[Rfam]
RNA sequence: ACAUUACAAGAUAUGAAGUUAAGACAGCCUUCUAGCUGUCAACCCUUACCAAUUUGUGUACCCUUUUUACUUCAGAUUGGCUCAAGAGGACCUUAAUUAGUCCUAGAACGGCCUGAGGUAGAGGGGUUUUAGUCGGUAGGUCCGAGGAGUUGUUUCUCGGGAAUCCGACACUACCCAGUCGUACGGACGGCUGGGUGUCUUUUGAAGAUUUCCUCUCUUCCACGAAA
Numbered sequence: 001a002c003a004u005u006a007c008a009a010g011a012u013a014u015g016a017a018g019u020u021a022a023g024a025c026a027g028c029c030u031u032c033u034a035g036c037u038g039u040c041a042a043c044c045c046u047u048a049c050c051a052a053u054u055u056g057u058g059u060a061c062c063c064u065u066u067u068u069a070c071u072u073c074a075g076a077u078u079g080g081c082u083c084a085a086g087a088g089g090a091c092c093u094u095a096a097u098u099a100g101u102c103c104u105a106g107a108a109c110g111g112c113c114u115g116a117g118g119u120a121g122a123g124g125g126g127u128u129u130u131a132g133u134c135g136g137u138a139g140g141u142c143c144g145a146g147g148a149g150u151u152g153u154u155u156c157u158c159g160g161g162a163a164u165c166c167g168a169c170a171c172u173a174c175c176c177a178g179u180c181g182u183a184c185g186g187a188c189g190g191c192u193g194g195g196u197g198u199c200u201u202u203u204g205a206a207g208a209u210u211u212c213c214u215c216u217c218u219u220c221c222a223c224g225a226a227a
Base pairs, nucleotide, nucleotide: 038091039090040089097226098225100223101222117221118220120218121217123214124213125212132169133168134167135166136165141161142160143159144158145157146156147155148154149153171197173196174195175194176193177192

Annotation
The record is a 227-nucleotide RNA sequence from Agrilus planipennis, which matches "R2 RNA element" in Rfam. Pairs were carried over by alignment from the consensus structure, which is taken from published work. A reference for the family is Luan et al. (1993), "Reverse transcription of R2Bm RNA is primed by a nick at the chromosomal target site: a mechanism for non-LTR retrotransposition", Cell. Rfam 15.1 lists 3,698 matches to the family in 74 species. Gene Ontology term of the family: regulation of reverse transcription. Rfam classes the family as a cis-regulatory element.